[Rfam]
RNA: Selenocysteine transfer RNA
RNA sequence: GCCCACUUGACUCUUGCUGGUGCAAGAUAAGGCCUUCAAAGCCUUGGCAGCUGCAAAGCUGAGCGGUUCAAUUCCGCCUGGGGGGC
Numbered sequence: 001g002c003c004c005a006c007u008u009g010a011c012u013c014u015u016g017c018u019g020g021u022g023c024a025a026g027a028u029a030a031g032g033c034c035u036u037c038a039a040a041g042c043c044u045u046g047g048c049a050g051c052u053g054c055a056a057a058g059c060u061g062a063g064c065g066g067u068u069c070a071a072u073u074c075c076g077c078c079u080g081g082g083g084g085g086c
Stems, first nucleotide, its partner, number of pairs: 001086004006081002009078001012027006028046006048061005063077004